[Rfam]
RNA sequence: UUCUUAUUCAGAGAGGCGGAGGGAAUUGGCCCUGUGAAACCUCGGCAGCGGGUUCUGCAUACAGCAGAAUACUGUGCCACAUCCAACAAGCCGUACGGGCUUGGAAGAUAAGAA
Numbered sequence: 001u002u003c004u005u006a007u008u009c010a011g012a013g014a015g016g017c018g019g020a021g022g023g024a025a026u027u028g029g030c031c032c033u034g035u036g037a038a039a040c041c042u043c044g045g046c047a048g049c050g051g052g053u054u055c056u057g058c059a060u061a062c063a064g065c066a067g068a069a070u071a072c073u074g075u076g077c078c079a080c081a082u083c084c085a086a087c088a089a090g091c092c093g094u095a096c097g098g099g100c101u102u103g104g105a106a107g108a109u110a111a112g113a114a
Stems, first nucleotide, its partner, number of pairs: 001114008013043004021032003026086004044078004049074002051070001053068002082106001087103006